[Rfam]
Rfam assigns this 71-nucleotide RNA from Cronobacter sakazakii to the family "Salmonella enterica sRNA STnc40". The source organism's lineage runs through Bacteria, Pseudomonadota, Enterobacterales, Cronobacter and Cronobacter sakazakii. By type it is a small RNA.
RNA sequence: GCAGUGCCACGGCCGCUUAAGCUAACCGGUUGUUAACCGACAUAAAAGGCGCAGAUAUCUGCGCCUUUUUU
Numbered sequence: 001g002c003a004g005u006g007c008c009a010c011g012g013c014c015g016c017u018u019a020a021g022c023u024a025a026c027c028g029g030u031u032g033u034u035a036a037c038c039g040a041c042a043u044a045a046a047a048g049g050c051g052c053a054g055a056u057a058u059c060u061g062c063g064c065c066u067u068u069u070u071u
Stems, first nucleotide, its partner, number of pairs: 003018002006013002044069011